[Rfam]
Rfam assigns this 87-nucleotide RNA from Azohydromonas caseinilytica to the family "c-di-GMP-I riboswitch aptamer". Pairs were carried over by alignment from the consensus structure, which is taken from published work. GEMM was predicted in a large-scale screen for bacterial structured RNA regulatory elements.

RNA sequence: ACCAGACAAGGGCAAACCUCUCGAAAGGGAGGGACGCAAAGUCUCCGGUCUACAGGGCUUCGGCCCCAGGAUAGCGGGACUGCCAGA
Numbered sequence: 001a002c003c004a005g006a007c008a009a010g011g012g013c014a015a016a017c018c019u020c021u022c023g024a025a026a027g028g029g030a031g032g033g034a035c036g037c038a039a040a041g042u043c044u045c046c047g048g049u050c051u052a053c054a055g056g057g058c059u060u061c062g063g064c065c066c067c068a069g070g071a072u073a074g075c076g077g078g079a080c081u082g083c084c085a086g087a
Base pairs, nucleotide, nucleotide: 012037013036017032018031019030020029021028022027040081041080042079043078045077046076047075048072049071050070055066056065057064058063
Lineage of the source: Bacteria > Pseudomonadati > Pseudomonadota > Burkholderiales > Azohydromonas.